[Rfam]
The record is a 98-nucleotide RNA from Ureibacillus yapensis, which matches "Glycine riboswitch aptamer" in Rfam. This family represents the bacterial glycine riboswitch. Taxonomically the source falls in Ureibacillus (Bacteria, Bacillati, Caryophanales, Caryophanaceae).
RNA sequence: GGACGCACCUCUGGAGAGCGCGUAUCAUGCAUACGCCACCAACGGGGAAAGCUCCAAAAUGGAGUUAAACUCUCAGGUACAAGGACAGAGAAGGGUAG
Dot-bracket structure: .....(..(((((......((((.........)))).(((.(..(((...((((.......))))....))))..))).......)))))..).....